[Rfam]
RNA sequence: CCCAGAGGUAUUAAUUGGUGAGUAAUCAACAUACGCUGUGUGUUAAAAACCAGUUUUUGAUUUGCACCGACCUACGCAGAUGCGUAGGUUUUUUUU
Numbered sequence: 001c002c003c004a005g006a007g008g009u010a011u012u013a014a015u016u017g018g019u020g021a022g023u024a025a026u027c028a029a030c031a032u033a034c035g036c037u038g039u040g041u042g043u044u045a046a047a048a049a050c051c052a053g054u055u056u057u058u059g060a061u062u063u064g065c066a067c068c069g070a071c072c073u074a075c076g077c078a079g080a081u082g083c084g085u086a087g088g089u090u091u092u093u094u095u096u
Stems, first nucleotide, its partner, number of pairs: 016069005021058001028044006070089008
A member of the RNA family "OmrA-B family" from Yersinia bercovieri, 96 nucleotides long.
The family's consensus secondary structure was predicted with WAR.
Rfam's curators put it in the seed alignment.